Source information:
Rfam assigns this 87-nucleotide sequence from Agrococcus pavilionensis to the family "Glycine riboswitch aptamer". NCBI's taxonomy places the organism under Bacteria, Micrococcales, Microbacteriaceae, Agrococcus, Agrococcus pavilionensis.
[Rfam]
Nucleotides: 087
Base pairs, nucleotide, nucleotide: 006082007081008080009079010078011077012076013075020030021029022028032067033066034065035063036062039061040060041059045054046053
Number, partner (000 for none) and nucleotide at each position: 001000c002000a003000c004000a005000c006082c007081c008080g009079u010078g011077c012076g013075g014000g015000a016000g017000a018000g019000c020030c021029c022028c023000u024000c025000c026000g027000g028022g029021g030020g031000c032067a033066c034065c035063g036062a037000a038000g039061g040060a041059g042000c043000a044000a045054g046053c047000c048000u049000c050000c051000c052000c053046g054045c055000c056000a057000a058000a059041c060040u061039c062036u063035c064000a065034g066033g067032u068000c069000c070000u071000c072000g073000a074000a075013c076012c077011g078010c079009a080008c081007g082006g083000g084000c085000a086000g087000g